[Rfam]
RNA sequence: GGUAUGAUAUUUAAACCCCACGUUAAGCCCCGGAAGACUUUACGUGAUUGAAAAUAAAUAUAAC
Numbered sequence: 001g002g003u004a005u006g007a008u009a010u011u012u013a014a015a016c017c018c019c020a021c022g023u024u025a026a027g028c029c030c031c032g033g034a035a036g037a038c039u040u041u042a043c044g045u046g047a048u049u050g051a052a053a054a055u056a057a058a059u060a061u062a063a064c
Stems, first nucleotide, its partner, number of pairs: 008060006019046005025040003
RNA: Ribosomal protein L13 leader